Shown here is a 67-nucleotide RNA sequence from Peribacillus cavernae, a member of the family "Bacillaceae-1 RNA". Lineage of the source: Bacteria > Bacillota > Bacilli > Caryophanales > Peribacillus.
[Rfam]
RNA sequence: GAUUAAGGAGCUUCUCCUAAAACCGCCACAUCCAUGUGGCAACGGAGAAGUCAGCACAUCCUGUGCA
Numbered sequence: 001g002a003u004u005a006a007g008g009a010g011c012u013u014c015u016c017c018u019a020a021a022a023c024c025g026c027c028a029c030a031u032c033c034a035u036g037u038g039g040c041a042a043c044g045g046a047g048a049a050g051u052c053a054g055c056a057c058a059u060c061c062u063g064u065g066c067a
Stems, first nucleotide, its partner, number of pairs: 011050007025040005054066004